[Rfam]
Rfam assigns this 95-nucleotide RNA from Colwellia sp. PAMC 20917 to the family "c-di-GMP-I riboswitch aptamer".
RNA sequence: AGUUGAAAAAGGCAAACUAGGUUAAAGUCUAGGACGCAAAGCCAACGGUCUAAGGAAAUUUAGCAAUUUUUUUCUAUGAUAGCGUAGCUACCGAC
Numbered sequence: 001a002g003u004u005g006a007a008a009a010a011g012g013c014a015a016a017c018u019a020g021g022u023u024a025a026a027g028u029c030u031a032g033g034a035c036g037c038a039a040a041g042c043c044a045a046c047g048g049u050c051u052a053a054g055g056a057a058a059u060u061u062a063g064c065a066a067u068u069u070u071u072u073u074c075u076a077u078g079a080u081a082g083c084g085u086a087g088c089u090a091c092c093g094a095c
Base pairs, nucleotide, nucleotide: 012037013036017032018031019030020029021028022027040089041088042087045085046084047083048080049079050078055074056073057072058071

The family's consensus secondary structure is taken from published work. Lineage of the source: Bacteria > Pseudomonadota > Gammaproteobacteria > Alteromonadales > Colwellia. Its family is annotated with cyclic-di-GMP binding in the Gene Ontology.